[Rfam]
Shown here is a 102-nucleotide RNA sequence from Desulforamulus ferrireducens, a member of the family "Guanidine-I riboswitch aptamer". The pairing is the family consensus, mapped onto this sequence.
Nucleotides: 102
Base pairs, nucleotide, nucleotide: 007057008056009055010054011053012052015047016046020044021043022041023038024037025036026035027034028033058073059072060071061070062069063068075097077100083095084094085093
Number, partner (000 for none) and nucleotide at each position: 001000g002000g003000a004000a005000a006000g007057u008056g009055u010054a011053c012052c013000u014000a015047g016046g017000g018000u019000u020044c021043c022041a023038c024037a025036a026035c027034c028033u029000a030000a031000a032000g033028a034027g035026g036025u037024u038023g039000g040000u041022u042000u043021g044020g045000u046016c047015c048000a049000a050000g051000c052012g053011g054010u055009a056008c057007a058073g059072g060071c061070g062069u063068c064000u065000a066000c067000a068063g069062a070061c071060g072059u073058u074000a075097c076000a077100c078000c079000g080000a081000a082000a083095g084094g085093g086000a087000u088000a089000a090000a091000a092000g093085c094084c095083c096000a097075g098000g099000c100077g101000g102000u